[Rfam]
RNA sequence: GGAUGUGAGGGUGAUCUGUCUGUGACAUCUGUUACCCCAUUGAUCACCAGGGUUGAUUUGGCUGUUCUGGCUGGGUAGGCAGGUGUCCCCUUCCUCCCUCACUGCUCCAUGUGCAUCCCUCCUGAAGUUGUGUACUCGAUUGAAGAGGAUAACUUUCCCCAAUAGAGACGGUACUGUUCAUCAGUCAAGGGUACACAGUAGGUGCGCUCCCCUGCUAGAACCUCCAAACAAGCUCAUGGUCCAUCUGUAGGAGGACAUAGAGUAACCAACCCAGGACAUUCUAUGAUUCAUUCUAUGAAUUGGCUCAGUUUUCUUA
Numbered sequence: 001g002g003a004u005g006u007g008a009g010g011g012u013g014a015u016c017u018g019u020c021u022g023u024g025a026c027a028u029c030u031g032u033u034a035c036c037c038c039a040u041u042g043a044u045c046a047c048c049a050g051g052g053u054u055g056a057u058u059u060g061g062c063u064g065u066u067c068u069g070g071c072u073g074g075g076u077a078g079g080c081a082g083g084u085g086u087c088c089c090c091u092u093c094c095u096c097c098c099u100c101a102c103u104g105c106u107c108c109a110u111g112u113g114c115a116u117c118c119c120u121c122c123u124g125a126a127g128u129u130g131u132g133u134a135c136u137c138g139a140u141u142g143a144a145g146a147g148g149a150u151a152a153c154u155u156u157c158c159c160c161a162a163u164a165g166a167g168a169c170g171g172u173a174c175u176g177u178u179c180a181u182c183a184g185u186c187a188a189g190g191g192u193a194c195a196c197a198g199u200a201g202g203u204g205c206g207c208u209c210c211c212c213u214g215c216u217a218g219a220a221c222c223u224c225c226a227a228a229c230a231a232g233c234u235c236a237u238g239g240u241c242c243a244u245c246u247g248u249a250g251g252a253g254g255a256c257a258u259a260g261a262g263u264a265a266c267c268a269a270c271c272c273a274g275g276a277c278a279u280u281c282u283a284u285g286a287u288u289c290a291u292u293c294u295a296u297g298a299a300u301u302g303g304c305u306c307a308g309u310u311u312u313c314u315u316a
Stems, first nucleotide, its partner, number of pairs: 001108003005102007013093002018090001024087010035074002037070003042067002045064001047061002116171002119167003123138003127135002140162003147158003201271003208264001210262001212260003222253004228248003232244001294316002297313002299309004
The record is a 316-nucleotide sequence from Odontophorus gujanensis, which matches "7SK RNA" in Rfam. The family has 45 seed sequences and 49,373 matches in Rfam 15.1. About the family: 7SK was discovered as an abundant small nuclear RNA in the mid-70s but a possible function has only recently been suggested. Two independent studies have found that 7SK RNA binds the CDK9/cyclin T complex (known as elongation factor P-TEFb). P-TEFb activates transcription by phosphorylating the C-terminal domain of RNA polymerase II. This process is negatively regulated by the 7SK RNP. The secondary structure of 7SK RNA shown here was proposed by Wasserman and Steitz on the basis of chemical modification and enzymatic cleavage experiments. Taxonomically the source falls in Odontophorus (Eukaryota, Metazoa, Archelosauria, Odontophoridae). The family's consensus secondary structure is taken from published work. Rfam classes the family as a non-coding RNA gene.